[Rfam]
RNA sequence: AGCCCGUUGGCACGUGCGGGACAUCGCGUGCCGAACCUCCCUGUUGGACUUGGCCGGGCUUUGUGCCCGGCCUUUUUU
Numbered sequence: 001a002g003c004c005c006g007u008u009g010g011c012a013c014g015u016g017c018g019g020g021a022c023a024u025c026g027c028g029u030g031c032c033g034a035a036c037c038u039c040c041c042u043g044u045u046g047g048a049c050u051u052g053g054c055c056g057g058g059c060u061u062u063g064u065g066c067c068c069g070g071c072c073u074u075u076u077u078u
Stems, first nucleotide, its partner, number of pairs: 008033009052072008
Shown here is a 78-nucleotide sequence from Roseivivax sediminis, a member of the family "Singlet oxygen resistance RNA X". It is annotated as a small RNA. Gene Ontology term of the family: response to photooxidative stress. About the family: SorX (RSs2461)like SorY is a singlet oxygen induced sRNA that counteracts oxidative stress by targeting mRNA for a transporter in Rhodobacter. It also has an impact on resistance against organic hydroperoxides. It targets SD sequence of potA mRNA via an aSD sequence. The aSD sequence and some neighbouring nucleotides are identical to the one of SorY (targets takP mRNA).